[Rfam]
RNA sequence: GGUGUCUGGAAUGAAGUUUGAUUCAAGAUCCUAAUUGCUUCCAUUAAUUUGUUCAAUUUAUUUAUUUUUAUUUUUAUGUUAUCCUCCUUUGAUAUUCAUAAUUAAUGACUGUUAUUAGAUGGAUCUCGGACCAGGCUUCAUUCCUCACACC
Dot-bracket structure: (((((..((((((..(((((...(.((((((.........................................................................................)))))).)...)))))..))))))..)))))
Numbered sequence: 001g002g003u004g005u006c007u008g009g010a011a012u013g014a015a016g017u018u019u020g021a022u023u024c025a026a027g028a029u030c031c032u033a034a035u036u037g038c039u040u041c042c043a044u045u046a047a048u049u050u051g052u053u054c055a056a057u058u059u060a061u062u063u064a065u066u067u068u069u070a071u072u073u074u075u076a077u078g079u080u081a082u083c084c085u086c087c088u089u090u091g092a093u094a095u096u097c098a099u100a101a102u103u104a105a106u107g108a109c110u111g112u113u114a115u116u117a118g119a120u121g122g123a124u125c126u127c128g129g130a131c132c133a134g135g136c137u138u139c140a141u142u143c144c145u146c147a148c149a150c151c
Stems, first nucleotide, its partner, number of pairs: 001151005008144006016136005024128001026126006
mir-166 microRNA precursor family: a 151-nucleotide sequence from Actinidia chinensis. The source organism's lineage runs through Eukaryota, Mesangiospermae, Gunneridae, Actinidia and Actinidia chinensis. About the family: This family represents the plant microRNA (miRNA) precursor mir-166. Gene Ontology terms of the family: RISC complex and miRNA-mediated post-transcriptional gene silencing. Rfam 15.1 lists 2,599 matches to the family in 229 species. On this family, see Reinhart et al., Genes Dev 2002: "MicroRNAs in plants".